[Rfam]
A member of the RNA family "Selenocysteine transfer RNA" from Intrasporangium chromatireducens, 92 nucleotides long. The family's consensus secondary structure is taken from published work.

Nucleotides: 092
Stems, first nucleotide, its partner, number of pairs: 001092007009084001012027002016023002029045005048066005069083004
Number, partner (000 for none) and nucleotide at each position: 001092g002091g003090a004089g005088g006087u007086g008000c009084a010000u011000g012027g013026g014000c015000u016023c017022c018000u019000g020000g021000u022017g023016g024000u025000c026013c027012c028000c029045c030044c031043g032042g033041u034000c035000u036000u037000c038000a039000a040000a041033a042032c043031c044030g045029g046000u047000g048066u049065g050064c051063g052062g053000c054000g055000g056000c057000a058000u059000c060000c061000g062052u063051c064050g065049c066048a067000g068000g069083c070082a071081g072080g073000u074000u075000c076000g077000a078000u079000u080072c081071c082070u083069g084009u085000u086007c087006a088005c089004c090003u091002c092001c